The record is a 157-nucleotide RNA sequence from Otariodibacter oris, which matches "Actinobacillus sRNA 14" in Rfam. It is annotated as a small RNA. From the family's description: Arrc stands for Actinobacillus pleuropneumoniae Regulatory RNA Candidate. May control the expression of ferric permease (gene afuB2) and ferredoxin (fdx). TargetRNA2 was used for the predictions. The base pairs follow the family's consensus structure, which was predicted with RNAfold.
RNA sequence: UCCUACACAAUAAUGCAAACACAAACACAUAUGGUUAAAGAUUUUUUACUCAGCUUACUCCUACUAUCACAUACGGUGUGAGGAUAAGUUGUAGUUGAAAGAAAAUUCAAUAUCCAUACUUAGCCCGCACUCACACUGCGGGCUUUUUUUAUUUAUA
Numbered sequence: 001u002c003c004u005a006c007a008c009a010a011u012a013a014u015g016c017a018a019a020c021a022c023a024a025a026c027a028c029a030u031a032u033g034g035u036u037a038a039a040g041a042u043u044u045u046u047u048a049c050u051c052a053g054c055u056u057a058c059u060c061c062u063a064c065u066a067u068c069a070c071a072u073a074c075g076g077u078g079u080g081a082g083g084a085u086a087a088g089u090u091g092u093a094g095u096u097g098a099a100a101g102a103a104a105a106u107u108c109a110a111u112a113u114c115c116a117u118a119c120u121u122a123g124c125c126c127g128c129a130c131u132c133a134c135a136c137u138g139c140g141g142g143c144u145u146u147u148u149u150u151a152u153u154u155a156u157a
Stems, first nucleotide, its partner, number of pairs: 014021002032116003038107002043105002046102002050098005057090001060088001062086002065083001067081006123143007
On this family, see Rossi et al., RNA 2016: "A computational strategy for the search of regulatory small RNAs in Actinobacillus pleuropneumoniae".